[Rfam]
RNA: MIR396 microRNA precursor family
RNA sequence: CGUCAUGCUUUUCCACAGCUUUCUUGAACUUCUUAUGCAUCUUAUAUCUCUCCACCUUCAGGAUUUUAAGCCCUAGAAGCUCAAGAAAGCUGUGGGAGAAUAUGGCAA
Numbered sequence: 001c002g003u004c005a006u007g008c009u010u011u012u013c014c015a016c017a018g019c020u021u022u023c024u025u026g027a028a029c030u031u032c033u034u035a036u037g038c039a040u041c042u043u044a045u046a047u048c049u050c051u052c053c054a055c056c057u058u059c060a061g062g063a064u065u066u067u068a069a070g071c072c073c074u075a076g077a078a079g080c081u082c083a084a085g086a087a088a089g090c091u092g093u094g095g096g097a098g099a100a101u102a103u104g105g106c107a108a
Stems, first nucleotide, its partner, number of pairs: 003105005013095003017091006024084004029079005